[Rfam]
Shown here is a 199-nucleotide RNA sequence from Eleutherodactylus coqui, a member of the family "Small nucleolar RNA SNORD97".
A reference for the family is Vitali et al. (2003), "Identification of 13 novel human modification guide RNAs", Nucleic Acids Res.
The match comes from Rfam's covariance-model search (72 bits).
The family's RNA type in Rfam is C/D-box small nucleolar RNA.
RNA sequence: AUGCCCAAUGAUUAUGAAAAGACGCGUUAUUACGAGGACAGAAGCUGGCAUCUCCUCUUCUCCCCCCCCCCCCCCCCCCCCCCCCCCAUCUCCUCCUCCUGACUUUGUCUUCCUCUCCCCUUACCCCCGCUUCACCUCUGUCUCCCUCCUUCUGGAGUACCCAGUGUCCUUUGAGCAAGAUUAUGAGAGAUGAGGGCGC
Numbered sequence: 001a002u003g004c005c006c007a008a009u010g011a012u013u014a015u016g017a018a019a020a021g022a023c024g025c026g027u028u029a030u031u032a033c034g035a036g037g038a039c040a041g042a043a044g045c046u047g048g049c050a051u052c053u054c055c056u057c058u059u060c061u062c063c064c065c066c067c068c069c070c071c072c073c074c075c076c077c078c079c080c081c082c083c084c085c086c087c088a089u090c091u092c093c094u095c096c097u098c099c100u101g102a103c104u105u106u107g108u109c110u111u112c113c114u115c116u117c118c119c120c121u122u123a124c125c126c127c128c129g130c131u132u133c134a135c136c137u138c139u140g141u142c143u144c145c146c147u148c149c150u151u152c153u154g155g156a157g158u159a160c161c162c163a164g165u166g167u168c169c170u171u172u173g174a175g176c177a178a179g180a181u182u183a184u185g186a187g188a189g190a191u192g193a194g195g196g197c198g199c
Base pairs, nucleotide, nucleotide: 002198003197004196005195006194035111036110037109038108039107040106041105